[Rfam]
RNA: Bacterial large subunit ribosomal RNA, nucleotides 1287 to 1660
RNA sequence: GCAAACAUUGGUGAGAAUCCAAUGCCCCGAAACCCUAAGGGUUCCUCCGGCAGGUUCGUCCGCGGAGGGUUAGUCAGGACCUAAGGCGAGGCCGAAAGGCGUAGUCGAUGGACAACGGGUGAACAUUCCCGUACGGAUUGGAGUUGGCGCGGGAGGACGGAGUGGGUCGAGACCAGCCGGAAGUUGGUUACCGGUUCAAGUGUUCGAGACGAAGACCGACGGCGAAAACGUUGGGAGUUAAGGCACGAGUACGAGACCUUACGAGGUCGAAGUGGUACAGAUCGAACUUCCAAGAAAAGCCCCAACCGCCAUAAGCUUCAAUUCCCUGUACCCGAAACCGACACAGGUAGGGAGGUUGAGAAAACCGAGGGGCG
Numbered sequence: 001g002c003a004a005a006c007a008u009u010g011g012u013g014a015g016a017a018u019c020c021a022a023u024g025c026c027c028c029g030a031a032a033c034c035c036u037a038a039g040g041g042u043u044c045c046u047c048c049g050g051c052a053g054g055u056u057c058g059u060c061c062g063c064g065g066a067g068g069g070u071u072a073g074u075c076a077g078g079a080c081c082u083a084a085g086g087c088g089a090g091g092c093c094g095a096a097a098g099g100c101g102u103a104g105u106c107g108a109u110g111g112a113c114a115a116c117g118g119g120u121g122a123a124c125a126u127u128c129c130c131g132u133a134c135g136g137a138u139u140g141g142a143g144u145u146g147g148c149g150c151g152g153g154a155g156g157a158c159g160g161a162g163u164g165g166g167u168c169g170a171g172a173c174c175a176g177c178c179g180g181a182a183g184u185u186g187g188u189u190a191c192c193g194g195u196u197c198a199a200g201u202g203u204u205c206g207a208g209a210c211g212a213a214g215a216c217c218g219a220c221g222g223c224g225a226a227a228a229c230g231u232u233g234g235g236a237g238u239u240a241a242g243g244c245a246c247g248a249g250u251a252c253g254a255g256a257c258c259u260u261a262c263g264a265g266g267u268c269g270a271a272g273u274g275g276u277a278c279a280g281a282u283c284g285a286a287c288u289u290c291c292a293a294g295a296a297a298a299g300c301c302c303c304a305a306c307c308g309c310c311a312u313a314a315g316c317u318u319c320a321a322u323u324c325c326c327u328g329u330a331c332c333c334g335a336a337a338c339c340g341a342c343a344c345a346g347g348u349a350g351g352g353a354g355g356u357u358g359a360g361a362a363a364a365c366c367g368a369g370g371g372g373c374g
Stems, first nucleotide, its partner, number of pairs: 006024006025372004033352004039332002044068006053061002075328004080111002085106003089102001091100003115132005135324011146310002151303003159290004165283003172276004176195005196251001200246004208239003216234005222229001255268005338347002354366004
Dot-bracket structure: .....((((((.......))))))((((....((((..((...((((((...((.....)).))))))......((((.((...(((.(.(((....))).).)))...))...(((((........)))))..(((((((((((((...(((.....((((..(((....(((((((((..........)))))(...((((....(((.....(((((.(......))))))..)))...))))....)...(((((....)))))....))))....)))...))))..........))).....))...)))))))))))))))..)).....((......)).)))).((((.....))))..))))..